Shown here is an 87-nucleotide RNA sequence from Varanus komodoensis, a member of the family "Small nucleolar RNA SNORD71".
Rfam describes the family as follows. snoRNA HBII-239 belongs to the family of C/D snoRNAs.It is the human orthologue of the mouse MBII-239 described and is predicted to guide 2'O-ribose methylation of 5.8S rRNA on residue U14.
It scores 61 bits against the family's covariance model.
The family has 18 seed sequences and 556 matches in Rfam 15.1.
RNA sequence: GGUGCUGUUGUAGGAUGAAGCCUAAGAGUGAUCCAUCGGCAGAGCGCCAGGCGCUGUGGUGACACUCAAGCAGCUGACAAGAGCACG
Numbered sequence: 001g002g003u004g005c006u007g008u009u010g011u012a013g014g015a016u017g018a019a020g021c022c023u024a025a026g027a028g029u030g031a032u033c034c035a036u037c038g039g040c041a042g043a044g045c046g047c048c049a050g051g052c053g054c055u056g057u058g059g060u061g062a063c064a065c066u067c068a069a070g071c072a073g074c075u076g077a078c079a080a081g082a083g084c085a086c087g
Base pairs, nucleotide, nucleotide: 002086003085004084005083006082008080009079010075013034014033015032016031018029036062037061038060040058044054045053046052
Dot-bracket structure: .(((((.(((..((((.(..........).)))).(((.(...(((.....)))...).)))............)...)).))))).

Description:
The literature on the family includes a 2001 paper in EMBO J by Huttenhofer et al., "RNomics: an experimental approach that identifies 201 candidates for novel, small, non-messenger RNAs in mouse". Taxonomically the source falls in Varanus (Eukaryota, Metazoa, Sauria, Unidentata). It is annotated as an H/ACA-box small nucleolar RNA. The base pairs follow the family's consensus structure, which was predicted with RNAalifold.